[Rfam]
RNA sequence: UCGGCCCCGGUUCACGCAUCCGCAUCCCGCGUCUGCGACCCGGUGCC
Numbered sequence: 001u002c003g004g005c006c007c008c009g010g011u012u013c014a015c016g017c018a019u020c021c022g023c024a025u026c027c028c029g030c031g032u033c034u035g036c037g038a039c040c041c042g043g044u045g046c047c
Base pairs, nucleotide, nucleotide: 003047004046005045007043008042009041010040015037016036017035018034021031022030023029
RNA: L31-Actinobacteria ribosomal protein leader